[Rfam]
Nucleotides: 075
Base pairs, nucleotide, nucleotide: 004074005073006072008070010026011025012024013023014022040069041068042067044066045065046064047063048062049061050060051059
Number, partner (000 for none) and nucleotide at each position: 001000g002000u003000a004074u005073a006072u007000c008070u009000a010026g011025u012024a013023g014022g015000a016000a017000u018000u019000g020000a021000a022014c023013u024012u025011a026010c027000g028000a029000a030000u031000u032000c033000g034000u035000c036000a037000a038000u039000u040069a041068u042067g043000a044066g045065u046064u047063g048062g049061g050060u051059g052000c053000u054000u055000u056000a057000a058000c059051c060050a061049u062048u063047u064046a065045g066044c067042c068041a069040u070008a071000c072006a073005u074004g075000c
Overview
The record is a 75-nucleotide RNA from Mikania micrantha, which matches "Plastid-ycf2 5UTR RNA" in Rfam. By type it is a cis-regulatory element. Pairs were carried over by alignment from the consensus structure, which was predicted with LocARNA. Rfam 15.1 lists 3,521 matches to the family in 417 species.